The family of this 223-nucleotide sequence from Denticeps clupeoides is "Small nucleolar RNA SNORA73 family". A search with the family's covariance model found it, with a score of 173 bits. U17 (SNORA73A and SNORA73B) also known as E1 belongs to the H/ACA class of small nucleolar RNAs (snoRNAs). It is annotated as an H/ACA-box small nucleolar RNA. Lineage of the source: Eukaryota > Deuterostomia > Actinopteri > Otomorpha > Denticeps.

RNA sequence: CCAACGUGGACACCCUGUGAGGUUGCCCUCGCAUGGCUCUGUCUGCGUGGCGUGAUGGGAGCUCAGCACCUCGUGCCGUGAUGUACAGUCCCGUUCCACGACGUUGGAGAGAAAGACGCUCCCCGGCUGCUUUCAGCUGGUGAGGACGUCGCCCUGUAUAUUCCUACGCUUCCCCAGAGCCUCUGGGCCAUGACUGGGGCGGAAAACCAUGCAGGGCACAACU
Number, nucleotide and partner (000 for none) at each position: 001c107002c106003a105004a104005c103006g102007u101008g044009g043010a042011c041012a040013c000014c036015c035016u000017g000018u031019g030020a029021g028022g000023u000024u000025g000026c000027c000028c021029u020030c019031g018032c000033a000034u000035g015036g014037c000038u000039c000040u012041g011042u010043c009044u008045g000046c000047g099048u098049g097050g096051c000052g000053u000054g000055a000056u000057g092058g091059g090060a089061g086062c000063u000064c083065a082066g079067c078068a000069c000070c000071u000072c000073g000074u000075g000076c000077c000078g067079u066080g000081a000082u065083g064084u000085a000086c061087a000088g000089u060090c059091c058092c057093g000094u000095u000096c050097c049098a048099c047100g000101a007102c006103g005104u004105u003106g002107g001108a000109g000110a000111g000112a000113a000114a000115g000116a000117c000118g000119c000120u000121c000122c000123c000124c000125g000126g000127c000128u000129g000130c000131u000132u000133u000134c000135a000136g000137c000138u000139g000140g000141u000142g000143a000144g000145g000146a000147c000148g000149u000150c000151g000152c000153c215154c214155u213156g212157u211158a210159u209160a000161u000162u000163c000164c000165u000166a000167c000168g000169c000170u201171u000172c199173c198174c197175c196176a000177g000178a000179g188180c187181c186182u000183c000184u000185g000186g181187g180188c179189c000190a000191u000192g000193a000194c000195u000196g175197g174198g173199g172200c000201g170202g000203a000204a000205a000206a000207c000208c000209a159210u158211g157212c156213a155214g154215g153216g000217c000218a000219c000220a000221a000222c000223u000